[Rfam]
RNA sequence: UAUCUUUGCACGCUGAUUGCUUCUCCUGAGCAUGUCGAAGGAACUGACAAUCAAUACAUAAAAAUCAUUUAAAUAAUAUUGGAAUG
Numbered sequence: 001u002a003u004c005u006u007u008g009c010a011c012g013c014u015g016a017u018u019g020c021u022u023c024u025c026c027u028g029a030g031c032a033u034g035u036c037g038a039a040g041g042a043a044c045u046g047a048c049a050a051u052c053a054a055u056a057c058a059u060a061a062a063a064a065u066c067a068u069u070u071a072a073a074u075a076a077u078a079u080u081g082g083a084a085u086g
Stems, first nucleotide, its partner, number of pairs: 014053006

Notes:
The record is an 86-nucleotide sequence from Flagellimonas ruestringensis, which matches "S15-Flavobacteria ribosomal protein leader" in Rfam. The family is grouped with related families in Rfam's "Ribosomal Protein S15 Leader clan". By type it is a cis-regulatory leader. On this family, see Eckert and Weinberg, BMC Microbiol 2020: "Discovery of 20 novel ribosomal leader candidates in bacteria and archaea". It is one of the family's seed sequences.